Rfam assigns this 54-nucleotide RNA from Glacieibacterium arshaanense to the family "terC RNA". The match comes from Rfam's covariance-model search (48 bits). Lineage of the source: Bacteria > Alphaproteobacteria > Sphingomonadales > Sphingosinicellaceae > Glacieibacterium. It is annotated as a cis-regulatory element.
[Rfam]
RNA sequence: GCGUAGCCGGGCCCCUCUGGCGCACGAGACGUCGUGCGUGAUGUCGGCGCUUCC
Numbered sequence: 001g002c003g004u005a006g007c008c009g010g011g012c013c014c015c016u017c018u019g020g021c022g023c024a025c026g027a028g029a030c031g032u033c034g035u036g037c038g039u040g041a042u043g044u045c046g047g048c049g050c051u052u053c054c
Stems, first nucleotide, its partner, number of pairs: 006048005020039008